RNA sequence: CUAUAUAUACCCUGUAGAACCGAAUUUGUGUUAGCAGUUUGUAAUCACAAAUUCGUCUCUGAGGGAGUAUAUGGU
Numbered sequence: 001c002u003a004u005a006u007a008u009a010c011c012c013u014g015u016a017g018a019a020c021c022g023a024a025u026u027u028g029u030g031u032u033a034g035c036a037g038u039u040u041g042u043a044a045u046c047a048c049a050a051a052u053u054c055g056u057c058u059c060u061g062a063g064g065g066a067g068u069a070u071a072u073g074g075u
Base pairs, nucleotide, nucleotide: 002073003072004071005070006069007068010065011064012063016060017059018058021055022054023053024052025051026050027049028048029047030046